[Rfam]
RNA sequence: CAACUCUGGAAAGCAGCAUGCUGUCCCCUCAGGACAAGGUGCUCACCGACGGUGCAAGCAGACUCAUCUGCGGAAUCUCUCAGGUCCAAGACAGAGCGGGGAGG
Numbered sequence: 001c002a003a004c005u006c007u008g009g010a011a012a013g014c015a016g017c018a019u020g021c022u023g024u025c026c027c028c029u030c031a032g033g034a035c036a037a038g039g040u041g042c043u044c045a046c047c048g049a050c051g052g053u054g055c056a057a058g059c060a061g062a063c064u065c066a067u068c069u070g071c072g073g074a075a076u077c078u079c080u081c082a083g084g085u086c087c088a089a090g091a092c093a094g095a096g097c098g099g100g101g102a103g104g
Stems, first nucleotide, its partner, number of pairs: 001099001004096005015043004045085003048081002052079001054077001058071005
Dot-bracket structure: (..(((((......((((.....................)))).(((((..(.(...(((((....))))).....).))).)))......)))))..).....

This 104-nucleotide sequence from Arthrobacter sp. SW1 belongs to the Rfam family "Glycine riboswitch aptamer". A search with the family's covariance model found it, with a score of 39 bits. Rfam's curators write: This family represents the bacterial glycine riboswitch. Glycine riboswitches usually consist of two metabolite-binding aptamers domains with similar structures in tandem. Gene Ontology term of the family: glycine biosynthetic process.